A member of the RNA family "Eukaryotic large subunit ribosomal RNA" from Meloidogyne artiellia, 485 nucleotides of a longer RNA.
RNA sequence: GGUAGUAGCAAAUAUUCAAGUGAGAUCCUUGAAGACUGAAGUGGAGAAGGGUUCCACGUGAACAGCAGUUGAAUGUGGGUCAGUCGAUCCUAAGGCACCGGCUAAAGCGUCUGGACACUGUGGGGGAGACGGGCGCUUCGCAAGGGGUGUCGGUCCACCCGGUUGCCGAAAGGGAAGUGGGUUAAUAUUCCCUCUCCAGGCAUCCCAGAGGGCGUCUCGCAAGAGUCGCCAAGCGCGGUAACGAAACAAACUCGCAGACCUCGUGUGGAGUCCGGGCCAGAGUUCUCUUUUCUGGUUGAGAGAUCGUGUCCCUGGAAGCGGCUCAUCCUGAGAUAGGGACGUUGGUUUCGUAAAGCGCAGCUUCCUGUUGCGUCCCGAGCGCUCCACAUGAGCCGUGAAAAUGCGAGGGAGGCUAUUAAAUUAAUUUCCUGCCUGAUCGUACCCAUAUCCGCAGCAGGUCUCCAAGGUGAACAGCCUCUAGUCGA
Numbered sequence: 001g002g003u004a005g006u007a008g009c010a011a012a013u014a015u016u017c018a019a020g021u022g023a024g025a026u027c028c029u030u031g032a033a034g035a036c037u038g039a040a041g042u043g044g045a046g047a048a049g050g051g052u053u054c055c056a057c058g059u060g061a062a063c064a065g066c067a068g069u070u071g072a073a074u075g076u077g078g079g080u081c082a083g084u085c086g087a088u089c090c091u092a093a094g095g096c097a098c099c100g101g102c103u104a105a106a107g108c109g110u111c112u113g114g115a116c117a118c119u120g121u122g123g124g125g126g127a128g129a130c131g132g133g134c135g136c137u138u139c140g141c142a143a144g145g146g147g148u149g150u151c152g153g154u155c156c157a158c159c160c161g162g163u164u165g166c167c168g169a170a171a172g173g174g175a176a177g178u179g180g181g182u183u184a185a186u187a188u189u190c191c192c193u194c195u196c197c198a199g200g201c202a203u204c205c206c207a208g209a210g211g212g213c214g215u216c217u218c219g220c221a222a223g224a225g226u227c228g229c230c231a232a233g234c235g236c237g238g239u240a241a242c243g244a245a246a247c248a249a250a251c252u253c254g255c256a257g258a259c260c261u262c263g264u265g266u267g268g269a270g271u272c273c274g275g276g277c278c279a280g281a282g283u284u285c286u287c288u289u290u291u292c293u294g295g296u297u298g299a300g301a302g303a304u305c306g307u308g309u310c311c312c313u314g315g316a317a318g319c320g321g322c323u324c325a326u327c328c329u330g331a332g333a334u335a336g337g338g339a340c341g342u343u344g345g346u347u348u349c350g351u352a353a354a355g356c357g358c359a360g361c362u363u364c365c366u367g368u369u370g371c372g373u374c375c376c377g378a379g380c381g382c383u384c385c386a387c388a389u390g391a392g393c394c395g396u397g398a399a400a401a402u403g404c405g406a407g408g409g410a411g412g413c414u415a416u417u418a419a420a421u422u423a424a425u426u427u428c429c430u431g432c433c434u435g436a437u438c439g440u441a442c443c444c445a446u447a448u449c450c451g452c453a454g455c456a457g458g459u460c461u462c463c464a465a466g467g468u469g470a471a472c473a474g475c476c477u478c479u480a481g482u483c484g485a
Stems, first nucleotide, its partner, number of pairs: 015033006034483004043463004049443002054078006063071002085439003089173002094167002096113002100110001101108002120160001122158001177194001179192003197435004220431002223428002225425002234243002251407006260392004265387007273377003276296006300349005309339006320328002356372006449458002465477004
The base pairs follow the family's consensus structure, which is taken from published work. NCBI's taxonomy places the organism under Eukaryota, Metazoa, Eumetazoa, Tylenchoidea, Meloidogyne.